The family of this 172-nucleotide RNA from Paenibacillus donghaensis is "FMN riboswitch aptamer (RFN element)".
The match comes from Rfam's covariance-model search (106 bits).
Its family is annotated with FMN binding in the Gene Ontology.
[Rfam]
RNA sequence: UCAAUCCUUCAGGGCAGGGUGUAAUUCCCUACCGGCGGUGAUGCUGCUGCAUAUCGGCUUAUUCCGAAUGCAUAAGCUUAGUCCGCUACCCGCUGCACAUAGUAGUUGUGUGCACGGUGGACCCGGUGCAAUUCCGGGACCGACAGUAUAGUCUGGAUGGAAGAAGGAGAGA
Numbered sequence: 001u002c003a004a005u006c007c008u009u010c011a012g013g014g015c016a017g018g019g020u021g022u023a024a025u026u027c028c029c030u031a032c033c034g035g036c037g038g039u040g041a042u043g044c045u046g047c048u049g050c051a052u053a054u055c056g057g058c059u060u061a062u063u064c065c066g067a068a069u070g071c072a073u074a075a076g077c078u079u080a081g082u083c084c085g086c087u088a089c090c091c092g093c094u095g096c097a098c099a100u101a102g103u104a105g106u107u108g109u110g111u112g113c114a115c116g117g118u119g120g121a122c123c124c125g126g127u128g129c130a131a132u133u134c135c136g137g138g139a140c141c142g143a144c145a146g147u148a149u150a151g152u153c154u155g156g157a158u159g160g161a162a163g164a165a166g167g168a169g170a171g172a
Stems, first nucleotide, its partner, number of pairs: 005168006017029003031152002033142002035086004090117002122138005144155003